Rfam assigns this 125-nucleotide RNA sequence from Caballeronia glathei to the family "Burkholderia sRNA Bp1_Cand684_SIPHT".
The match comes from Rfam's covariance-model search (46 bits).
Taxonomically the source falls in Caballeronia (Bacteria, Betaproteobacteria, Burkholderiales, Burkholderiaceae).
On this family, see Khoo et al., BMC Genomics 2012: "Computational discovery and RT-PCR validation of novel Burkholderia conserved and Burkholderia pseudomallei unique sRNAs".
[Rfam]
RNA sequence: AAGAAAGUGACUGCCGCCCCGCACAGGGGCGAGCUAACAGACCAAUAAGAAAUCAAGCUUCACAGAAGCCGAGGCGCAUCAAACGGUGUAGAGGCGCGAGCCCAAAGCGCCACCGCGAGGAAAGC
Number, nucleotide and partner (000 for none) at each position: 001a000002a000003g000004a000005a000006a000007g000008u000009g000010a000011c091012u090013g089014c088015c031016g030017c029018c028019c027020c026021g000022c000023a000024c000025a000026g020027g019028g018029g017030c016031g015032a000033g000034c000035u000036a000037a000038c000039a000040g000041a000042c000043c000044a000045a000046u000047a000048a000049g000050a000051a000052a000053u000054c000055a000056a000057g000058c000059u000060u000061c000062a000063c000064a000065g000066a000067a000068g000069c000070c000071g000072a000073g000074g000075c000076g000077c000078a000079u000080c000081a000082a000083a000084c000085g000086g000087u000088g014089u013090a012091g011092a000093g000094g000095c000096g000097c000098g000099a000100g000101c000102c000103c000104a000105a000106a000107g000108c117109g116110c115111c000112a000113c000114c000115g110116c109117g108118a000119g000120g000121a000122a000123a000124g000125c000